[Rfam]
Nucleotides: 600
Base pairs, nucleotide, nucleotide: 001593002592003591005590006589007588008587009586010585011584014462015461016460017459020455021418027416028415029414031413032412033411036068037067041066042065043064048060049059075371076370077369085292086291087290090287091286094285095284100280101279102278103277116151117150118149119148125141128138129137130136158180159179160178161177162176165173166172185243186242187241188240189239199231200230201229202228209214253273254272255271256270258269259268260267261266295341296340301333302332303331308330309329310328311327312326313325314324315323346368347367348366349365350361351360352359353358373394374393376391377390378389396407398405399404424453426452427451428450432448433447434446435445468499469498470497471495472494473493474492475491476490477489478488479487506526507525508523510522511521536582537581538580539579540578541577549576550575551574552573558565559564
Number, partner (000 for none) and nucleotide at each position: 001593a002592g003591u004000c005590a006589u007588a008587u009586g010585c011584u012000u013000g014462u015461c016460u017459u018000a019000a020455a021418g022000a023000u024000u025000a026000a027416g028415c029414c030000a031413u032412g033411c034000a035000c036068g037067u038000c039000u040000a041066a042065g043064u044000a045000u046000a047000a048060a049059c050000a051000a052000a053000a054000a055000u056000a057000c058000a059049g060048u061000a062000a063000a064043a065042c066041u067037g068036c069000a070000a071000a072000u073000g074000g075371c076370u077369c078000a079000u080000u081000a082000u083000a084000a085292c086291a087290g088000u089000u090287a091286u092000a093000g094285u095284u096000u097000c098000u099000u100280u101279g102278a103277u104000a105000g106000c107000a108000a109000a110000c111000g112000u113000u114000u115000a116151c117150a118149u119148g120000g121000a122000u123000a124000a125141c126000c127000g128138u129137g130136g131000u132000a133000a134000u135000u136130c137129u138128a139000g140000a141125g142000c143000u144000a145000a146000u147000a148119c149118a150117u151116g152000a153000g154000c155000a156000c157000a158180u159179u160178c161177u162176c163000a164000a165173c166172u167000g168000u169000u170000u171000u172166a173165g174000a175000a176162g177161a178160g179159a180158a181000g182000c183000a184000u185243u186242u187241a188240u189239u190000a191000g192000a193000u194000a195000a196000a197000a198000a199231a200230c201229c202228a203000a204000u205000g206000u207000a208000u209214g210000u211000u212000u213000u214209u215000a216000a217000a218000a219000c220000a221000u222000a223000a224000a225000a226000g227000g228202u229201g230200g231199u232000g233000a234000u235000u236000u237000a238000c239189a240188a241187u242186a243185a244000c245000u246000a247000a248000g249000c250000a251000a252000a253273u254272c255271g256270c257000a258269c259268a260267g261266u262000g263000a264000a265000a266261a267260c268259u269258g270256g271255c272254g273253a274000u275000a276000a277103a278102u279101c280100a281000u282000u283000c284095a285094a286091g287090u288000u289000u290087c291086u292085g293000a294000c295341c296340u297000a298000u299000c300000a301333g302332c303331u304000u305000u306000c307000g308330a309329c310328g311327g312326u313325a314324a315323g316000g317000u318000a319000u320000u321000g322000g323315c324314u325313u326312a327311c328310c329309g330308u331303g332302g333301c334000a335000g336000u337000g338000a339000c340296g341295g342000u343000u344000a345000a346368c347367g348366g349365g350361g351360a352359a353358u354000u355000a356000g357000g358353g359352u360351u361350c362000a363000a364000u365349u366348c367347c368346g369077g370076a371075g372000a373394g374393g375000g376391a377390g378389c379000c380000u381000g382000a383000g384000a385000a386000a387000c388000g389378g390377c391376u392000a393374c394373c395000a396407c397000a398405u399404c400000u401000a402000a403000g404399g405398a406000a407396g408000g409000c410000a411033g412032c413031a414029g415028g416027c417000g418021c419000g420000c421000a422000a423000a424453u425000u426452a427451c428450c429000c430000a431000a432448u433447u434446c435445u436000a437000a438000u439000a440000g441000c442000a443000u444000a445435a446434g447433a448432g449000a450428g451427g452426u453424a454000g455020u456000g457000a458000c459017a460016a461015g462014a463000a464000a465000u466000a467000a468499c469498a470497g471495u472494a473493c474492a475491a476490g477489g478488c479487a480000g481000u482000u483000a484000a485000a486000a487479u488478g489477c490476u491475u492474u493473g494472u495471a496000a497470u498469u499468g500000g501000a502000a503000u504000g505000a506526u507525a508523g509000a510522a511521a512000u513000u514000u515000a516000a517000a518000u519000a520000c521511u522510u523508u524000u525507u526506a527000a528000a529000g530000u531000a532000u533000c534000a535000a536582u537581u538580g539579g540578a541577g542000g543000g544000c545000a546000a547000g548000u549576c550575u551574g552573g553000u554000g555000c556000c557000a558565g559564c560000a561000g562000c563000c564559g565558c566000g567000g568000u569000a570000a571000u572000u573552c574551c575550a576549g577541c578540u579539c580538c581537a582536a583000u584011a585010g586009c587008g588007u589006a590005u591003a592002u593001u594000a595000a596000a597000a598000u599000u600000g